[Rfam]
RNA sequence: GAAGCCCGCCAGACCGCCGCUGGUGCAAGUGCCGAAAGGCCGCACUGGAGGAACGUCCGGACUGCACAGGGCAGCGUAGCAGGCAACACCUGUCCACCGCGAGGUGAGGAUCAGAGCAACAGAGACGAGUCGCCUCGGGGCCGCAAGGUUCCGGGGCGGGUGAAACGGGCAAUCUCUACGCGCAGCAAUACCAAGUAGGCCAGCGUCGACCUGUGUCCCGGGGAGCUGGCGGGUAGGUAGCACCGAGCCGGUGGGGCGACCCCCGGCCCAGAGGAAUGGCGGUCACGCCGCGCUCCGGCAACGGGGCGCGGCGCACAGAAUCCGGCGUACCGGCGGACUUCACAC
Numbered sequence: 001g002a003a004g005c006c007c008g009c010c011a012g013a014c015c016g017c018c019g020c021u022g023g024u025g026c027a028a029g030u031g032c033c034g035a036a037a038g039g040c041c042g043c044a045c046u047g048g049a050g051g052a053a054c055g056u057c058c059g060g061a062c063u064g065c066a067c068a069g070g071g072c073a074g075c076g077u078a079g080c081a082g083g084c085a086a087c088a089c090c091u092g093u094c095c096a097c098c099g100c101g102a103g104g105u106g107a108g109g110a111u112c113a114g115a116g117c118a119a120c121a122g123a124g125a126c127g128a129g130u131c132g133c134c135u136c137g138g139g140g141c142c143g144c145a146a147g148g149u150u151c152c153g154g155g156g157c158g159g160g161u162g163a164a165a166c167g168g169g170c171a172a173u174c175u176c177u178a179c180g181c182g183c184a185g186c187a188a189u190a191c192c193a194a195g196u197a198g199g200c201c202a203g204c205g206u207c208g209a210c211c212u213g214u215g216u217c218c219c220g221g222g223g224a225g226c227u228g229g230c231g232g233g234u235a236g237g238u239a240g241c242a243c244c245g246a247g248c249c250g251g252u253g254g255g256g257c258g259a260c261c262c263c264c265g266g267c268c269c270a271g272a273g274g275a276a277u278g279g280c281g282g283u284c285a286c287g288c289c290g291c292g293c294u295c296c297g298g299c300a301a302c303g304g305g306g307c308g309c310g311g312c313g314c315a316c317a318g319a320a321u322c323c324g325g326c327g328u329a330c331c332g333g334c335g336g337a338c339u340u341c342a343c344a345c
Stems, first nucleotide, its partner, number of pairs: 001341004006336005012284007020048007053328003057325005062185004069218004074181005079093005094108001095106004109176002114174002116170002131159001133155003137152006189239004199230006210222004247267005253262003
Bacterial RNase P class A: a 345-nucleotide RNA from Ramlibacter tataouinensis. NCBI's taxonomy places the organism under Bacteria, Pseudomonadota, Betaproteobacteria, Burkholderiales, Ramlibacter tataouinensis. The family's consensus secondary structure is taken from published work. It scores 181 bits against the family's covariance model. It is annotated as a ribozyme.